This 70-nucleotide sequence from Carlito syrichta belongs to the Rfam family "mir-290 microRNA precursor family".

RNA sequence: GUGGCACUCAAAUGUGGAAGCACUCUUCUGACAUGUCCCAGUGAAAAGUGCUGCAACAUUUGAGUGCCAC
Numbered sequence: 001g002u003g004g005c006a007c008u009c010a011a012a013u014g015u016g017g018a019a020g021c022a023c024u025c026u027u028c029u030g031a032c033a034u035g036u037c038c039c040a041g042u043g044a045a046a047a048g049u050g051c052u053g054c055a056a057c058a059u060u061u062g063a064g065u066g067c068c069a070c
Stems, first nucleotide, its partner, number of pairs: 004067009014057002017054001019052006026045003